[Rfam]
RNA sequence: ACCAUUCUGGUGUGGAUGAUACUGCAUCAGGAACUGAUUGGCUGAUACUCAGUUGCCAACAGUACCUGGUGCAUUACCUUCAGCAUCGAAAGA
Numbered sequence: 001a002c003c004a005u006u007c008u009g010g011u012g013u014g015g016a017u018g019a020u021a022c023u024g025c026a027u028c029a030g031g032a033a034c035u036g037a038u039u040g041g042c043u044g045a046u047a048c049u050c051a052g053u054u055g056c057c058a059a060c061a062g063u064a065c066c067u068g069g070u071g072c073a074u075u076a077c078c079u080u081c082a083g084c085a086u087c088g089a090a091a092g093a
Stems, first nucleotide, its partner, number of pairs: 023073005029067003033063004039058003
Dot-bracket structure: ......................(((((.(((.((((..(((..............))).)))).))).)))))....................

Description:
The record is a 93-nucleotide sequence from Oryzias sinensis, which matches "mir-217 microRNA precursor family" in Rfam. The literature on the family includes a 2003 paper in Science by Lim et al., "Vertebrate microRNA genes". Gene Ontology terms of the family: miRNA-mediated post-transcriptional gene silencing and RISC complex. It scores 87 bits against the family's covariance model. NCBI's taxonomy places the organism under Eukaryota, Actinopteri, Teleostei, Eurypterygia, Oryzias.